[Rfam]
RNA sequence: UUGGCGGCAGCUGAAAAGCCAUAAGAGUAGGCA
Numbered sequence: 001u002u003g004g005c006g007g008c009a010g011c012u013g014a015a016a017a018g019c020c021a022u023a024a025g026a027g028u029a030g031g032c033a
Base pairs, nucleotide, nucleotide: 003020004019005018010032011031012030

Shown here is a 33-nucleotide RNA from Phaeocystidibacter luteus, a member of the family "DUF805b RNA". The organism belongs to Phaeocystidibacter, within Bacteria.